[Rfam]
RNA: Alphaproteobacteria transfer-messenger RNA
RNA sequence: ACCCUUCCCUUGUGGCACCUUACCCCCUAUAUUCCGCUGCGUCGGCUUGCCGACUAUGGCGAUAAACGCCCUGUGGAAUAAGCGUUGUGGACCCGGGGGCGGUACCCGGCGCCUCCACCAACCACACACCGGUGUCAUUGACCGGGGUCGUUGGGGGCGAAACAGGAUCGACACGCGUGGUAAAGGCAUGGUUUUCGCUCGGCAUGGUUCCGCCGUUAUCGGGCCAUUGCAAUAGUUGCCAAUGACAACGUUGCUCAGGCUCGCCUCGCUGCCUAACGGCGGCUGGUAGCCUAAACCUAAUCCCCGAUGGUUAGCGCCUGAGGGUGGGGCCGUGGGCCGCCUAGCAACAGAAGGCCCACACC
Numbered sequence: 001a002c003c004c005u006u007c008c009c010u011u012g013u014g015g016c017a018c019c020u021u022a023c024c025c026c027c028u029a030u031a032u033u034c035c036g037c038u039g040c041g042u043c044g045g046c047u048u049g050c051c052g053a054c055u056a057u058g059g060c061g062a063u064a065a066a067c068g069c070c071c072u073g074u075g076g077a078a079u080a081a082g083c084g085u086u087g088u089g090g091a092c093c094c095g096g097g098g099g100c101g102g103u104a105c106c107c108g109g110c111g112c113c114u115c116c117a118c119c120a121a122c123c124a125c126a127c128a129c130c131g132g133u134g135u136c137a138u139u140g141a142c143c144g145g146g147g148u149c150g151u152u153g154g155g156g157g158c159g160a161a162a163c164a165g166g167a168u169c170g171a172c173a174c175g176c177g178u179g180g181u182a183a184a185g186g187c188a189u190g191g192u193u194u195u196c197g198c199u200c201g202g203c204a205u206g207g208u209u210c211c212g213c214c215g216u217u218a219u220c221g222g223g224c225c226a227u228u229g230c231a232a233u234a235g236u237u238g239c240c241a242a243u244g245a246c247a248a249c250g251u252u253g254c255u256c257a258g259g260c261u262c263g264c265c266u267c268g269c270u271g272c273c274u275a276a277c278g279g280c281g282g283c284u285g286g287u288a289g290c291c292u293a294a295a296c297c298u299a300a301u302c303c304c305c306g307a308u309g310g311u312u313a314g315c316g317c318c319u320g321a322g323g324g325u326g327g328g329g330c331c332g333u334g335g336g337c338c339g340c341c342u343a344g345c346a347a348c349a350g351a352a353g354g355c356c357c358a359c360a361c362c
Stems, first nucleotide, its partner, number of pairs: 041054005058199005068192003072188003083177003087174003093109005110159007200215004205226003209223003327342004335357002338354001